[Rfam]
A member of the RNA family "Eukaryotic large subunit ribosomal RNA" from Lotharella oceanica, 224 nucleotides of a longer RNA. Lineage of the source: Eukaryota > Sar > Cercozoa > Chlorarachniophyceae > Lotharella. On this family, see Yusupov et al., Science 2001: "Crystal structure of the ribosome at 5.5 A resolution". The base pairs follow the family's consensus structure, which is taken from published work.
RNA sequence: CAUUCGCGGAUACCAUUCUGCCUGCCGCAUAGCCCGGGUUUGAUCGCUCGGGUCGCGUCACGGAUCCAGUACCGAUCAUGAAGGCCGGGAGCUACCCGUCACGCGUGACGGGUCGUGCACUCCCCCGCCCACCCGAUCGCGGUAACGCAGUCGACACCGGUGGAUGUAUCACCGGUGUGCACGUACUGGGGAAAUAUCCAUGAAUGACCCGUCUUGAAACACGG
Numbered sequence: 001c002a003u004u005c006g007c008g009g010a011u012a013c014c015a016u017u018c019u020g021c022c023u024g025c026c027g028c029a030u031a032g033c034c035c036g037g038g039u040u041u042g043a044u045c046g047c048u049c050g051g052g053u054c055g056c057g058u059c060a061c062g063g064a065u066c067c068a069g070u071a072c073c074g075a076u077c078a079u080g081a082a083g084g085c086c087g088g089g090a091g092c093u094a095c096c097c098g099u100c101a102c103g104c105g106u107g108a109c110g111g112g113u114c115g116u117g118c119a120c121u122c123c124c125c126c127g128c129c130c131a132c133c134c135g136a137u138c139g140c141g142g143u144a145a146c147g148c149a150g151u152c153g154a155c156a157c158c159g160g161u162g163g164a165u166g167u168a169u170c171a172c173c174g175g176u177g178u179g180c181a182c183g184u185a186c187u188g189g190g191g192a193a194a195u196a197u198c199c200a201u202g203a204a205u206g207a208c209c210c211g212u213c214u215u216g217a218a219a220c221a222c223g224g
Stems, first nucleotide, its partner, number of pairs: 001206006008199005018063001021062001023060002026057002067188006209224004